[Rfam]
RNA: Purine riboswitch aptamer
Organism: Falsibacillus albus
RNA sequence: UUUGCCCUCGAUGCAGUCCUUCGUAUAUCCUCGAUAAUAUGGUUCGAAAGUCUCUACCGGGUCACCUUAAAUGACCUGACUAUGAAGGCAGAAAUUCUUUUC
Numbered sequence: 001u002u003u004g005c006c007c008u009c010g011a012u013g014c015a016g017u018c019c020u021u022c023g024u025a026u027a028u029c030c031u032c033g034a035u036a037a038u039a040u041g042g043u044u045c046g047a048a049a050g051u052c053u054c055u056a057c058c059g060g061g062u063c064a065c066c067u068u069a070a071a072u073g074a075c076c077u078g079a080c081u082a083u084g085a086a087g088g089c090a091g092a093a094a095u096u097c098u099u100u101u102c
Base pairs, nucleotide, nucleotide: 018088019087020086021085022084023083024082025081031047032046033045034044058078059077060076061075062074063073064072